[Rfam]
RNA sequence: CUUGUUGUUCCCUCAACAAUCGGCUAUCGGAGCGAGCGUGGCUGGUAACGGCCGGGUUUCGGAACUCCCGGGACGAUGAAGUCUCUCGGGUGAGGAGAGCACGCCCGUGAAGUUCGCUCAACUGCUGCCAGCAUCGGGCGGCGAGGACG
Numbered sequence: 001c002u003u004g005u006u007g008u009u010c011c012c013u014c015a016a017c018a019a020u021c022g023g024c025u026a027u028c029g030g031a032g033c034g035a036g037c038g039u040g041g042c043u044g045g046u047a048a049c050g051g052c053c054g055g056g057u058u059u060c061g062g063a064a065c066u067c068c069c070g071g072g073a074c075g076a077u078g079a080a081g082u083c084u085c086u087c088g089g090g091u092g093a094g095g096a097g098a099g100c101a102c103g104c105c106c107g108u109g110a111a112g113u114u115c116g117c118u119c120a121a122c123u124g125c126u127g128c129c130a131g132c133a134u135c136g137g138g139c140g141g142c143g144a145g146g147a148c149g
Stems, first nucleotide, its partner, number of pairs: 002019006028070003032066001033061003036057002039054006084095004097119004105112001124142006
A member of the RNA family "Group II catalytic intron D1-D4-7" from Paraburkholderia sp. BL10I2N1, 149 nucleotides long. The base pairs follow the family's consensus structure. About the family: Group II introns are found in rRNA, tRNA and mRNA of organelles in fungi, plants and protists, and also in mRNA in bacteria. Lineage of the source: Bacteria > Pseudomonadota > Betaproteobacteria > Burkholderiaceae > Paraburkholderia.